[Rfam]
Background: Shown here is a 51-nucleotide RNA from Leptolyngbya sp. FACHB-321, a member of the family "Nitrogen stress-induced RNA 1". The pairing is the family consensus, mapped onto this sequence. On this family, see Ionescu et al., J Mol Biol 2010: "Heterocyst-specific transcription of NsiR1, a non-coding RNA encoded in a tandem array of direct repeats in cyanobacteria". Rfam classes the family as a small RNA.
RNA sequence: UGGUAGAUGCACCCUGAUCAUGCCCCUGGCUUCUGGCUGGGGGCAUUUAUU
Numbered sequence: 001u002g003g004u005a006g007a008u009g010c011a012c013c014c015u016g017a018u019c020a021u022g023c024c025c026c027u028g029g030c031u032u033c034u035g036g037c038u039g040g041g042g043g044c045a046u047u048u049a050u051u
Stems, first nucleotide, its partner, number of pairs: 002013003023043009